[Rfam]
RNA: Iron response element I
Organism: Odobenus rosmarus
RNA sequence: CUGUGCCUUUCUUCAGCAGUGUUUGGAUGGAACAG
Numbered sequence: 001c002u003g004u005g006c007c008u009u010u011c012u013u014c015a016g017c018a019g020u021g022u023u024u025g026g027a028u029g030g031a032a033c034a035g
Stems, first nucleotide, its partner, number of pairs: 001035004007030002012027005017021001